The record is a 138-nucleotide RNA sequence from Neodiprion lecontei, which matches "U4atac minor spliceosomal RNA" in Rfam. The organism belongs to Neodiprion, within Eukaryota. On this family, see Lorkovic et al., RNA 2005: "Evolutionary conservation of minor U12-type spliceosome between plants and humans". Gene Ontology terms of the family: mRNA 5'-splice site recognition, spliceosomal tri-snRNP complex assembly and pre-mRNA 5'-splice site binding. About the family: U4atac is an essential component of the minor U12-type spliceosome complex which is required for removal of the rarer class of eukaryotic introns (AT-AC, U12-type).

[Rfam]
RNA sequence: AUCAUCCUUGUCUUUGGGGAGCAUAGUGUUCAAUGACCGUAUAGUGAGGGCACUGAUGCUGAAACCAUAAACAAAAAUAUAACCGCAUCCGUAAGGUUUGCCAUACGGUGACUUUGACGGGAUGCAAUUUUUGCAAGC
Numbered sequence: 001a002u003c004a005u006c007c008u009u010g011u012c013u014u015u016g017g018g019g020a021g022c023a024u025a026g027u028g029u030u031c032a033a034u035g036a037c038c039g040u041a042u043a044g045u046g047a048g049g050g051c052a053c054u055g056a057u058g059c060u061g062a063a064a065c066c067a068u069a070a071a072c073a074a075a076a077a078u079a080u081a082a083c084c085g086c087a088u089c090c091g092u093a094a095g096g097u098u099u100g101c102c103a104u105a106c107g108g109u110g111a112c113u114u115u116g117a118c119g120g121g122a123u124g125c126a127a128u129u130u131u132u133g134c135a136a137g138c
Stems, first nucleotide, its partner, number of pairs: 005019004021059004025054007038044001085125006094115003098111005